CRISPR RNA direct repeat element: a 37-nucleotide sequence from Neomoorella thermoacetica. Its family is annotated with defense response in the Gene Ontology.
RNA sequence: GUUGCGCCUGGCUCCCAUGCCGGGCGAGGAUUGAAAC
Numbered sequence: 001g002u003u004g005c006g007c008c009u010g011g012c013u014c015c016c017a018u019g020c021c022g023g024g025c026g027a028g029g030a031u032u033g034a035a036a037c
Stems, first nucleotide, its partner, number of pairs: 005026008